This 142-nucleotide RNA from Chrysochloris asiatica belongs to the Rfam family "Small Cajal body specific RNA 11". Rfam classes the family as a small Cajal body RNA. From the family's description: scaRNAs are a specific class of small nuclear RNAs which localise to the Cajal bodies and guide the modification of RNA polymerase II transcribed spliceosomal RNAs U1, U2, U4, U5 and U12. ACA57 belongs to the H/ACA box class of guide RNAs as it has the predicted hairpin-hinge-hairpin-tail structure, conserved H/ACA-box motifs and is found associated with GAR1. Taxonomically the source falls in Chrysochloris (Eukaryota, Teleostomi, Euteleostomi, Chrysochlorinae).
[Rfam]
RNA sequence: AUGUCCUGACCUGUGCAUUACUUGCUUCCCUGUGCUUAACUCUUGACAGGGGAGUCUGUGGCAGGACAGACAGUAAUUUCCCUCUCAGUUUAGGAGGGCUGUCUUAAGAACAGCCUGGCUCUUAAAGGCACGAGAGGACAAU
Dot-bracket structure: .(((((((.((............(((.((((((............)))))).)))....)))))))))............((((((.((((..((((((((.((.......)).).)))))))..))))..)))))).....